[Rfam]
RNA sequence: GACCGUAUCGGUUAGAUCGGGAUACUCAUCAAUAAAAAAACGAAAACCGAGAUGAUUUCUAUUGCUAAUGGCGGGCCACAUUCCUUCGGGAUAGCUGUAGAGCCGGUGGAUUACAAAGGCGUAGAACUCUCAAAUCUUAUUAGCUCGGAGUUUCAUCACAUCACGAUGCGGUCUUUUAG
Numbered sequence: 001g002a003c004c005g006u007a008u009c010g011g012u013u014a015g016a017u018c019g020g021g022a023u024a025c026u027c028a029u030c031a032a033u034a035a036a037a038a039a040a041c042g043a044a045a046a047c048c049g050a051g052a053u054g055a056u057u058u059c060u061a062u063u064g065c066u067a068a069u070g071g072c073g074g075g076c077c078a079c080a081u082u083c084c085u086u087c088g089g090g091a092u093a094g095c096u097g098u099a100g101a102g103c104c105g106g107u108g109g110a111u112u113a114c115a116a117a118g119g120c121g122u123a124g125a126a127c128u129c130u131c132a133a134a135u136c137u138u139a140u141u142a143g144c145u146c147g148g149a150g151u152u153u154c155a156u157c158a159c160a161u162c163a164c165g166a167u168g169c170g171g172u173c174u175u176u177u178a179g
Stems, first nucleotide, its partner, number of pairs: 056126002059124004064120003069115002076109004082091003094103003
RNA: Bacteroidales-1 6S-Bacteroidales RNA suggested